Rfam assigns this 364-nucleotide part of an RNA from Actinomyces weissii to the family "Bacterial large subunit ribosomal RNA". NCBI's taxonomy places the organism under Bacteria, Bacillati, Actinomycetales, Actinomycetaceae, Actinomyces. The match comes from Rfam's covariance-model search (2618 bits).

[Rfam]
RNA sequence: CGAGAUAAUCAUGGUGAAGGAACUCGGCAAAAUGCCCCCGUAACCUAGGGAGAAGGGGGGCCCAGGCCCUGAAGCCCCACGCGGGCUAGGGGUGAGGGCCGCAGAGACCAGGGAGAAGCGACUGUUUACUAAAAACACAGGUCCGUGCGAAGCCGCAACGCGAUGUAUACGGACUGACGCCUGCCCGGUGCUGGAAGGUUAAGAGGAACCGUCAACCCCCUACCGGGGUGAAGCGGUGAAUUCAAGCCCCAGUAAACGGCGGUGGUAACUAUAACCAUCCUAAGGUAGCGAAAUUCCUUGUCGGGUAAGUUCCGACCUGCACGAAUGGCGUAACGACUUCUCUACUGUCUCCACCAUGAGCUCG
Number, nucleotide and partner (000 for none) at each position: 001c364002g363003a362004g361005a000006u000007a000008a000009u359010c358011a357012u356013g355014g354015u353016g352017a000018a350019g349020g348021a000022a000023c000024u000025c000026g000027g000028c000029a000030a000031a000032a000033u000034g000035c059036c058037c057038c056039c055040g000041u000042a000043a000044c049045c000046u000047a000048g000049g044050g000051a000052g000053a000054a000055g039056g038057g037058g036059g035060g099061c098062c097063c096064a000065g000066g000067c000068c000069c000070u000071g000072a000073a087074g086075c085076c084077c083078c000079a000080c000081g000082c000083g077084g076085g075086c074087u073088a000089g000090g000091g000092g000093u000094g000095a000096g063097g062098g061099c060100c104101g000102c000103a000104g100105a000106g000107a000108c000109c000110a000111g000112g343113g342114a341115g340116a339117a338118g337119c335120g334121a000122c000123u137124g136125u135126u000127u000128a000129c000130u000131a000132a000133a000134a000135a125136c124137a123138c000139a000140g175141g174142u173143c172144c171145g170146u169147g168148c165149g000150a000151a000152g161153c160154c000155g000156c000157a000158a000159c000160g153161c152162g000163a000164u000165g148166u000167a000168u147169a146170c145171g144172g143173a142174c141175u140176g000177a000178c330179g329180c328181c327182u000183g260184c259185c258186c000187g000188g257189u256190g253191c252192u251193g250194g249195a000196a000197g248198g247199u246200u000201a000202a000203g242204a241205g000206g000207a000208a237209c236210c235211g234212u233213c000214a000215a229216c228217c227218c226219c225220c000221u000222a000223c000224c000225g219226g218227g217228g216229u215230g000231a000232a000233g212234c211235g210236g209237u208238g000239a000240a000241u204242u203243c000244a000245a000246g199247c198248c197249c194250c193251a192252g191253u190254a000255a000256a189257c188258g185259g184260c183261g279262g278263u277264g276265g275266u274267a000268a000269c000270u000271a000272u000273a000274a266275c265276c264277a263278u262279c261280c284281u000282a000283a000284g280285g000286u000287a000288g000289c000290g317291a000292a000293a000294u000295u000296c000297c000298u000299u000300g316301u315302c314303g313304g312305g311306u000307a000308a000309g000310u000311u305312c304313c303314g302315a301316c300317c290318u000319g000320c000321a000322c000323g000324a000325a000326u000327g181328g180329c179330g178331u000332a000333a000334c120335g119336a000337c118338u117339u116340c115341u114342c113343u112344a000345c000346u000347g000348u020349c019350u018351c000352c016353a015354c014355c013356a012357u011358g010359a009360g000361c004362u003363c002364g001